[Rfam]
A member of the RNA family "Guanidine-II riboswitch aptamer (mini-ykkC)" from Azospirillum sp. B510, 53 nucleotides long.
The source organism's lineage runs through Bacteria, Pseudomonadati, Alphaproteobacteria, Azospirillaceae and Azospirillum.
From the family's description: Simpler in structure and has fewer highly conserved nucleotide positions than the ykkC-yxkD leader. Despite this each of its two stem-loop structures directly bind free guanidine. Therefore, mini-ykkC RNA motif represents a distinct class of guanidine-sensing RNAs. Its crystal structure was also determined.
A search with the family's covariance model found it, with a score of 36 bits.
RNA sequence: CUGCGGGGACGACCCCGCCGCCGAAAAGGGGCAACCGGGUGGGGACGACCCCG
Number, nucleotide and partner (000 for none) at each position: 001c020002u000003g018004c017005g016006g015007g014008g013009a000010c000011g000012a000013c008014c007015c006016c005017g004018c003019c000020g001021c000022c000023g000024a000025a000026a000027a000028g000029g000030g000031g000032c000033a000034a000035c000036c000037g000038g000039g000040u053041g052042g051043g050044g049045a000046c000047g000048a000049c044050c043051c042052c041053g040